[Rfam]
A member of the RNA family "L13-Bacteroidia ribosomal protein leader" from Prevotella amnii, 74 nucleotides long. Taxonomically the source falls in Prevotella amnii (Bacteria, Bacteroidota, Bacteroidia, Bacteroidales). Rfam's curators put it in the seed alignment.

RNA sequence: GGGAUUUUCUUAGAAUCCCGUACGUAACAUGUUAAUAGCAUGGUUUUUGGCCGAGCUGUGUGGUUAGGUAAAGC
Number, nucleotide and partner (000 for none) at each position: 001g019002g018003g017004a016005u015006u014007u013008u012009c000010u000011u000012a008013g007014a006015a005016u004017c003018c002019c001020g000021u000022a000023c000024g000025u000026a000027a000028c000029a000030u000031g000032u067033u066034a065035a064036u063037a000038g061039c060040a059041u058042g057043g056044u055045u054046u053047u000048u000049g000050g000051c000052c000053g046054a045055g044056c043057u042058g041059u040060g039061u038062g000063g036064u035065u034066a033067g032068g000069u000070a000071a000072a000073g000074c000